[Rfam]
RNA sequence: ACCUUGCGUUCGGGUUUAGAAUUCCUACGCUUUACCGUAGAUAAGGAUGGUAAAGCGUCUGGAUUCUGAAUCUGAAUUCAU
Numbered sequence: 001a002c003c004u005u006g007c008g009u010u011c012g013g014g015u016u017u018a019g020a021a022u023u024c025c026u027a028c029g030c031u032u033u034a035c036c037g038u039a040g041a042u043a044a045g046g047a048u049g050g051u052a053a054a055g056c057g058u059c060u061g062g063a064u065u066c067u068g069a070a071u072c073u074g075a076a077u078u079c080a081u
Stems, first nucleotide, its partner, number of pairs: 010075011022063003027058007035050002